[Rfam]
RNA sequence: UCCCCGCUUCUCCUCCCUGAGCGGGUGCCUGUCGUUAUUCGAUUAGGCUGUUCACCCGCCGUACUGCGGCGGGUUUUUUGU
Numbered sequence: 001u002c003c004c005c006g007c008u009u010c011u012c013c014u015c016c017c018u019g020a021g022c023g024g025g026u027g028c029c030u031g032u033c034g035u036u037a038u039u040c041g042a043u044u045a046g047g048c049u050g051u052u053c054a055c056c057c058g059c060c061g062u063a064c065u066g067c068g069g070c071g072g073g074u075u076u077u078u079u080g081u
Base pairs, nucleotide, nucleotide: 003025004024005023006022007021008020027048028047029046030045032042033041034040054074055073056072057071058070059069060068061067
Dot-bracket structure: ..((((((...........)))))).((((.(((.....)))..)))).....((((((((.....)))))))).......
Annotation: The record is an 81-nucleotide RNA sequence from Candidatus Burkholderia verschuerenii, which matches "Burkholderia RNA 7 (anti-hemB)" in Rfam. The organism belongs to Burkholderia, within Bacteria. Gene Ontology terms of the family: bacterial biofilm matrix and protein binding. By type it is a small RNA. Pairs were carried over by alignment from the consensus structure, which is taken from published work.